[Rfam]
RNA sequence: UGUCAAGAGUCAUUACCGUCGAUUCGGCGAGCAGGUUUCUUUUGCCCAAUGAGAGGGUGAAGGAAGGACA
Numbered sequence: 001u002g003u004c005a006a007g008a009g010u011c012a013u014u015a016c017c018g019u020c021g022a023u024u025c026g027g028c029g030a031g032c033a034g035g036u037u038u039c040u041u042u043u044g045c046c047c048a049a050u051g052a053g054a055g056g057g058u059g060a061a062g063g064a065a066g067g068a069c070a
Stems, first nucleotide, its partner, number of pairs: 010064002013061002017059004023054002026050001029047001031045005
Shown here is a 70-nucleotide RNA sequence from Manganibacter manganicus, a member of the family "S-element". The family's RNA type in Rfam is cis-regulatory element. The match comes from Rfam's covariance-model search (49 bits). NCBI's taxonomy places the organism under Bacteria, Pseudomonadati, Alphaproteobacteria, Hyphomicrobiales, Manganibacter. Rfam links the family to the GO terms translation regulator activity and mRNA transcription. Rfam describes the family as follows. This family represents a group of S-elements from p42d and related plasmids.